[Rfam]
Description: The family of this 85-nucleotide sequence from Streptomyces sp. adm13(2018) is "ZMP/ZTP riboswitch aptamer (pfl RNA motif)". The base pairs follow the family's consensus structure, which is taken from published work. Lineage of the source: Bacteria > Bacillati > Actinomycetota > Streptomycetaceae > Streptomyces. A search with the family's covariance model found it, with a score of 51 bits.
RNA sequence: CCCCCCGGUCGUGACUGGCGAGAGUGGAGCACCACAGGGAAGCGGCCUCUCACCGGAUCCGACGUCGACCGCCUGGGCGUCCUCC
Numbered sequence: 001c002c003c004c005c006c007g008g009u010c011g012u013g014a015c016u017g018g019c020g021a022g023a024g025u026g027g028a029g030c031a032c033c034a035c036a037g038g039g040a041a042g043c044g045g046c047c048u049c050u051c052a053c054c055g056g057a058u059c060c061g062a063c064g065u066c067g068a069c070c071g072c073c074u075g076g077g078c079g080u081c082c083u084c085c
Base pairs, nucleotide, nucleotide: 007047008046009045010044011043012042015039016038017073018072019071020070024035025034026033027032062080063079064078065077066076